[Rfam]
The family of this 87-nucleotide RNA sequence from Anaerobacillus isosaccharinicus is "BsrC". From the family's description: The 301 nucleotide sequence from Kouji Nakamura has been trimmed to a highly conserved ~85 nucleotide long core to form this family. The base pairs follow the family's consensus structure, which was predicted with CMfinder.
RNA sequence: UAAACCCUAAAAAACAAAAGCCCUACCUCUCUUUUAUCAUUACGGCUCCUUGGCCGUGCCACUAAUAAUAAGGCUAACUAACAAAGU
Dot-bracket structure: .................................(.....((((((((....)))))))..).....)....................